[Rfam]
RNA sequence: CCCAUUUAGGCACAAUGCGCCGCUGUCAAAAAAUGACUAAAAACCGACGUUUCAUCAGCGUCGGUUAUUUUUUGC
Numbered sequence: 001c002c003c004a005u006u007u008a009g010g011c012a013c014a015a016u017g018c019g020c021c022g023c024u025g026u027c028a029a030a031a032a033a034u035g036a037c038u039a040a041a042a043a044c045c046g047a048c049g050u051u052u053c054a055u056c057a058g059c060g061u062c063g064g065u066u067a068u069u070u071u072u073u074g075c
Stems, first nucleotide, its partner, number of pairs: 010020002042066008
Dot-bracket structure: .........((.......)).....................((((((((.........)))))))).........
RNA: Enterobacterial sRNA STnc240
Organism: Escherichia coli